[Rfam]
RNA sequence: CAGUUAUAUUCGCCUGACGGCGAGUGAUAUUGUCCUUCGGACAGUGAUAUUAUGCUUCGCAUCGUGAUAUUGCCU
Numbered sequence: 001c002a003g004u005u006a007u008a009u010u011c012g013c014c015u016g017a018c019g020g021c022g023a024g025u026g027a028u029a030u031u032g033u034c035c036u037u038c039g040g041a042c043a044g045u046g047a048u049a050u051u052a053u054g055c056u057u058c059g060c061a062u063c064g065u066g067a068u069a070u071u072g073c074c075u
Stems, first nucleotide, its partner, number of pairs: 008025007029045006049065002052062004
Gut-1 RNA: a 75-nucleotide sequence.
It is annotated as a small RNA.
Rfam 15.1 lists 51 matches to the family in 22 species.